[Rfam]
Shown here is a 147-nucleotide sequence, a member of the family "radC RNA". It is annotated as a cis-regulatory element. Rfam 15.1 lists 500 matches to the family in 142 species.
RNA sequence: ACCCUGCCAGCAUGUUCCGCUGAUGCGUCAGCGACAUGCCCAGGUAGCCACGGUCUUCAAGGCUACGGCGCGGUUCCGACCGCGUGACCCAACCAGUUCGCCUCAGCAUCCCCAGCGCGAACGGCCGUCCCUCGGGAUGGUGGAUGC
Numbered sequence: 001a002c003c004c005u006g007c008c009a010g011c012a013u014g015u016u017c018c019g020c021u022g023a024u025g026c027g028u029c030a031g032c033g034a035c036a037u038g039c040c041c042a043g044g045u046a047g048c049c050a051c052g053g054u055c056u057u058c059a060a061g062g063c064u065a066c067g068g069c070g071c072g073g074u075u076c077c078g079a080c081c082g083c084g085u086g087a088c089c090c091a092a093c094c095a096g097u098u099c100g101c102c103u104c105a106g107c108a109u110c111c112c113c114a115g116c117g118c119g120a121a122c123g124g125c126c127g128u129c130c131c132u133c134g135g136g137a138u139g140g141u142g143g144a145u146g147c
Base pairs, nucleotide, nucleotide: 011038012037013036014035016033019032020031021030022029023028044066045065046064047063048062049061052089053088054087055086068085069084070083071082072081073080117147118146119145124141125140126139127138128137129136130135